[Rfam]
RNA sequence: GCUGUUUUCGGGUGGAUGACUCCGCAAUUUCAUUACACGACACGUUGAAAGAAAUUGCACAGUAUCCAUCUGCAAUCCGCC
Numbered sequence: 001g002c003u004g005u006u007u008u009c010g011g012g013u014g015g016a017u018g019a020c021u022c023c024g025c026a027a028u029u030u031c032a033u034u035a036c037a038c039g040a041c042a043c044g045u046u047g048a049a050a051g052a053a054a055u056u057g058c059a060c061a062g063u064a065u066c067c068a069u070c071u072g073c074a075a076u077c078c079g080c081c
Stems, first nucleotide, its partner, number of pairs: 009072009019063002024058008
The family of this 81-nucleotide RNA from Scophthalmus maximus is "mir-363 microRNA precursor family".
Gene Ontology terms of the family: miRNA-mediated post-transcriptional gene silencing and RISC complex.
The family has 22 seed sequences and 620 matches in Rfam 15.1.
The base pairs follow the family's consensus structure, which was predicted with RNAalifold.
The literature on the family includes a 2010 paper in BMC Genomics by Linsen et al., "Small RNA expression and strain specificity in the rat".
NCBI's taxonomy places the organism under Eukaryota, Gnathostomata, Eurypterygia, Pleuronectiformes, Scophthalmus.